[Rfam]
Rfam assigns this 68-nucleotide RNA from Pseudolycoriella hygida to the family "mir-2 microRNA precursor family". The family has 56 seed sequences and 918 matches in Rfam 15.1. Taxonomically the source falls in Pseudolycoriella (Eukaryota, Insecta, Panorpida, Sciaridae). A reference for the family is Ambros (2001), "microRNAs: tiny regulators with great potential", Cell. Pairs were carried over by alignment from the consensus structure, which was predicted with PFOLD.

RNA sequence: CACUUCGUGAAAAUGGUUGUGCUGUGCUUAUGUUAUUUGUCAUAUCACAGCCAUUUUGACGAGUUUGG
Numbered sequence: 001c002a003c004u005u006c007g008u009g010a011a012a013a014u015g016g017u018u019g020u021g022c023u024g025u026g027c028u029u030a031u032g033u034u035a036u037u038u039g040u041c042a043u044a045u046c047a048c049a050g051c052c053a054u055u056u057u058g059a060c061g062a063g064u065u066u067g068g
Stems, first nucleotide, its partner, number of pairs: 005062004010057012025044002
Dot-bracket structure: ....((((.((((((((((((...((................)).)))))))))))).))))......